[Rfam]
Nucleotides: 070
Stems, first nucleotide, its partner, number of pairs: 001069004006064002010025004027043005048062004
Number, partner (000 for none) and nucleotide at each position: 001069g002068c003067c004066c005000c006064c007063a008000u009000a010025g011024c012023u013022u014000a015000a016000c017000c018000c019000a020000c021000a022013a023012a024011g025010c026000a027043u028042g029041g030040c031039a032000c033000u034000g035000a036000a037000g038000a039031u040030g041029c042028c043027a044000a045000g046000a047000u048062g049061g050060u051059a052000c053000c054000u055000a056000c057000u058000a059051u060050a061049c062048c063007u064006g065000u066004g067003g068002g069001c070000a
Rfam assigns this 70-nucleotide sequence to the family "tRNA". It is one of the family's seed sequences. By type it is a transfer RNA. Pairs were carried over by alignment from the consensus structure, which is taken from published work. From the family's description: Transfer RNA (tRNA) molecules are approximately 80 nucleotides in length.